[Rfam]
RNA sequence: UUUUAUAGCUUCUAGGGUUCCGGUUUAGACAGAGCAAUAAAUAAAAUUGCAUCGCUCUAAAUGCUGGUCCAAGAGAAGCAGCUGGCCGCUUCAGAAUUUAUAGUUUUUUGAAGGAUUAGCUAGCCACACGGCGGGAGAAAAGCCCGGGAGGA
Numbered sequence: 001u002u003u004u005a006u007a008g009c010u011u012c013u014a015g016g017g018u019u020c021c022g023g024u025u026u027a028g029a030c031a032g033a034g035c036a037a038u039a040a041a042u043a044a045a046a047u048u049g050c051a052u053c054g055c056u057c058u059a060a061a062u063g064c065u066g067g068u069c070c071a072a073g074a075g076a077a078g079c080a081g082c083u084g085g086c087c088g089c090u091u092c093a094g095a096a097u098u099u100a101u102a103g104u105u106u107u108u109u110g111a112a113g114g115a116u117u118a119g120c121u122a123g124c125c126a127c128a129c130g131g132c133g134g135g136a137g138a139a140a141a142g143c144c145c146g147g148g149a150g151g152a
Stems, first nucleotide, its partner, number of pairs: 008079005015070002020067002022064001023062006081124006127147001129150001133145003
Notes: This 152-nucleotide RNA sequence from Microcoleus sp. FACHB-831 belongs to the Rfam family "Guanidine-I riboswitch aptamer". Pairs were carried over by alignment from the consensus structure. Taxonomically the source falls in Microcoleus (Bacteria, Bacillati, Cyanophyceae, Microcoleaceae). Rfam's curators write: This family represents a conserved RNA structure found upstream of the ykkC and yxkD genes in Bacillus subtilis and related genes in other bacteria.